[Rfam]
RNA sequence: UGUUGGACGCAACACUGGGAGUGACUGAAUAAACUUACUGGCAUAUAGCUGGUUAAGGUGAUGCGACAGAGGUGGUGCUCGCUGUCAGGAAUGGCAGAACUACAAACCAAGUAGGUCGUAGGCAGAGUGGUAAUUCUAAACUGUAGAAAUGCCCUGCUCUUGUUGGUAUACAGGAAUCCAACCUCCCCCAUU
Number, nucleotide and partner (000 for none) at each position: 001u014002g013003u012004u011005g010006g000007a000008c000009g000010c005011a004012a003013c002014a001015c000016u000017g187018g186019g185020a184021g183022u000023g000024a059025c058026u000027g000028a000029a000030u000031a000032a000033a000034c000035u000036u000037a053038c052039u051040g050041g049042c048043a000044u000045a000046u000047a000048g042049c041050u040051g039052g038053u037054u000055a000056a000057g000058g025059u024060g000061a000062u120063g119064c118065g117066a116067c115068a000069g080070a079071g078072g000073u109074g108075g107076u106077g000078c071079u070080c069081g000082c097083u096084g095085u094086c093087a092088g000089g000090a000091a000092u087093g086094g085095c084096a083097g082098a000099a000100c114101u113102a112103c000104a000105a000106a076107c075108c074109a073110a000111g000112u102113a101114g100115g067116u066117c065118g064119u063120a062121g000122g000123c000124a160125g159126a158127g157128u156129g155130g154131u000132a000133a000134u149135u148136c000137u146138a000139a000140a000141c173142u172143g171144u170145a000146g137147a000148a135149a134150u000151g000152c000153c000154c130155u129156g128157c127158u126159c125160u124161u000162g182163u181164u180165g179166g178167u000168a000169u000170a144171c143172a142173g141174g000175a000176a000177u000178c166179c165180a164181a163182c162183c021184u020185c019186c018187c017188c000189c000190a000191u000192u000